[Rfam]
Nucleotides: 118
Stems, first nucleotide, its partner, number of pairs: 001019004007034007035101004039096008049070005054064003073085004104118005
Number, partner (000 for none) and nucleotide at each position: 001019u002018g003017g004016u005000g006000a007034u008033g009032c010031c011030u012029c013028c014000u015000a016004a017003c018002c019001g020000u021000u022000a023000u024000c025000a026000a027000u028013g029012g030011a031010g032009g033008c034007a035101c036100u037099c038098g039096g040095c041094u042093g043092u044091a045090c046089u047000g048000u049070g050069g051068g052067u053066u054064u055063g056062g057000a058000a059000u060000a061000u062056c063055c064054g065000g066053g067052a068051c069050c070049u071000u072000a073085g074084a075083c076082g077000c078000g079000a080000g081000u082076c083075g084074u085073c086000a087000a088000u089046a090045g091044u092043g093042c094041a095040g096039c097000g098038u099037g100036a101035g102000g103000g104118u105117g106116g107115g108114u109000u110000a111000g112000a113000u114108g115107c116106c117105c118104a
A member of the RNA family "epsC RNA" from Bacillus sp. PK3_68, 118 nucleotides long. Pairs were carried over by alignment from the consensus structure, which is taken from published work. A search with the family's covariance model found it, with a score of 122 bits. The family's RNA type in Rfam is cis-regulatory element. Taxonomically the source falls in Bacillus (Bacteria, Bacillati, Bacillota, Caryophanales).